[Rfam]
RNA sequence: UGGACACCCAUCAAAGGAGUAGUUCCCCAUGAGGAACUACUUUGCCAUAUUCUGAAUUC
Numbered sequence: 001u002g003g004a005c006a007c008c009c010a011u012c013a014a015a016g017g018a019g020u021a022g023u024u025c026c027c028c029a030u031g032a033g034g035a036a037c038u039a040c041u042u043u044g045c046c047a048u049a050u051u052c053u054g055a056a057u058u059c
Stems, first nucleotide, its partner, number of pairs: 016043011
Dot-bracket structure: ...............(((((((((((......)))))))))))................

A member of the RNA family "Plastid-psbN 5UTR RNA" from Rhodamnia argentea, 59 nucleotides long. A search with the family's covariance model found it, with a score of 66 bits. The source organism's lineage runs through Eukaryota, Magnoliopsida, Myrtaceae, Decasperminae and Rhodamnia.